[Rfam]
RNA: Metazoan signal recognition particle RNA
RNA sequence: ACCGGGAACGGUGGCGCGUGCCUGUAAUCCAAGCUACUGGGAGGUUGAGGCUGGUGGAGCGCUUGAGUUCAGGGGUUCUGGGCUGUAGUACGCUGUGGCGAUCGGGCGUCCGCACUAAGUUCGGUAUCGAUAUGGUGCUCCUGGGGGAGCCUGGGAGUACCAGGUCGUCUAAGGAGGGGUGAACCGGCCCAGGUCGGACACGGAGCAGGUCAAAACCCCCAUGCUGAUCAGUAGUGGGAUCACGCCUGUGAGUAGAUGCUGCAGCGCAGCCUGAACAACACAGCACGACCCAGUCUUUU
Numbered sequence: 001a002c003c004g005g006g007a008a009c010g011g012u013g014g015c016g017c018g019u020g021c022c023u024g025u026a027a028u029c030c031a032a033g034c035u036a037c038u039g040g041g042a043g044g045u046u047g048a049g050g051c052u053g054g055u056g057g058a059g060c061g062c063u064u065g066a067g068u069u070c071a072g073g074g075g076u077u078c079u080g081g082g083c084u085g086u087a088g089u090a091c092g093c094u095g096u097g098g099c100g101a102u103c104g105g106g107c108g109u110c111c112g113c114a115c116u117a118a119g120u121u122c123g124g125u126a127u128c129g130a131u132a133u134g135g136u137g138c139u140c141c142u143g144g145g146g147g148a149g150c151c152u153g154g155g156a157g158u159a160c161c162a163g164g165u166c167g168u169c170u171a172a173g174g175a176g177g178g179g180u181g182a183a184c185c186g187g188c189c190c191a192g193g194u195c196g197g198a199c200a201c202g203g204a205g206c207a208g209g210u211c212a213a214a215a216c217c218c219c220c221a222u223g224c225u226g227a228u229c230a231g232u233a234g235u236g237g238g239a240u241c242a243c244g245c246c247u248g249u250g251a252g253u254a255g256a257u258g259c260u261g262c263a264g265c266g267c268a269g270c271c272u273g274a275a276c277a278a279c280a281c282a283g284c285a286c287g288a289c290c291c292a293g294u295c296u297u298u299u
Stems, first nucleotide, its partner, number of pairs: 001045003004023003008019003028042003047297008059286001061284003067276007078269003082265009093255004103248007110238002113236005119229001121227007128167004133162013168174002176219005186211004194203003